[Rfam]
RNA sequence: AAAGGCGCCGAGAUUUAUCAGCGGCAAUAACUGCCGGAUGUGCGCCCUGGCGUUUCUCCAGGCAGUAGGGAAGCCCGCUUCGGCGGGCUUUUU
Numbered sequence: 001a002a003a004g005g006c007g008c009c010g011a012g013a014u015u016u017a018u019c020a021g022c023g024g025c026a027a028u029a030a031c032u033g034c035c036g037g038a039u040g041u042g043c044g045c046c047c048u049g050g051c052g053u054u055u056c057u058c059c060a061g062g063c064a065g066u067a068g069g070g071a072a073g074c075c076c077g078c079u080u081c082g083g084c085g086g087g088c089u090u091u092u093u
Stems, first nucleotide, its partner, number of pairs: 010022001012019002030066006036059003071090008
isrB Hfq binding RNA: a 93-nucleotide sequence from Paraburkholderia sp. BL10I2N1. Lineage of the source: Bacteria > Betaproteobacteria > Burkholderiales > Burkholderiaceae > Paraburkholderia.